The record is a 109-nucleotide RNA from Rhizobium metallidurans, which matches "EcpR1" in Rfam. Pairs were carried over by alignment from the consensus structure, which was predicted with WAR. Perviously named SmelC291, SmrC10, or Sra33. According to its overproduction phenotype it was renamed Elongated Cell Phenotype RNA1. For this family Rfam cites "Deep sequencing uncovers numerous small RNAs on all four replicons of the plant pathogen Agrobacterium tumefaciens" (Wilms et al., RNA Biol, 2012). It scores 97 bits against the family's covariance model.

RNA sequence: AUACCCCAUGAUGCUCAGGUCCGCCGCAUCUCCUGGGUCGUGGGGUCGGUCGGUCGGCAUGCAACAUCUGCGGUUCCUCGUGCCGCGUUGCCUGUUGACCGACCCCCUU
Numbered sequence: 001a002u003a004c005c006c007c008a009u010g011a012u013g014c015u016c017a018g019g020u021c022c023g024c025c026g027c028a029u030c031u032c033c034u035g036g037g038u039c040g041u042g043g044g045g046u047c048g049g050u051c052g053g054u055c056g057g058c059a060u061g062c063a064a065c066a067u068c069u070g071c072g073g074u075u076c077c078u079c080g081u082g083c084c085g086c087g088u089u090g091c092c093u094g095u096u097g098a099c100c101g102a103c104c105c106c107c108u109u
Base pairs, nucleotide, nucleotide: 003046004045005044006043007042008041009040010039014037015036016035017034018033019032048104049103050102051101052100053099054098055097056096057095058094
Dot-bracket structure: ..((((((((...((((((............)))))).)))))))).(((((((((((...................................))))))))))).....